[Rfam]
RNA sequence: CAGAGUUUCAGCUCUUUCAGAAUUUGCCUAGCAGGUUUUCUGGUCCUCAUCGGAAGACCCCC
Numbered sequence: 001c002a003g004a005g006u007u008u009c010a011g012c013u014c015u016u017u018c019a020g021a022a023u024u025u026g027c028c029u030a031g032c033a034g035g036u037u038u039u040c041u042g043g044u045c046c047u048c049a050u051c052g053g054a055a056g057a058c059c060c061c062c
Base pairs, nucleotide, nucleotide: 034059035058036057037056038055039054040053041052042051043050044049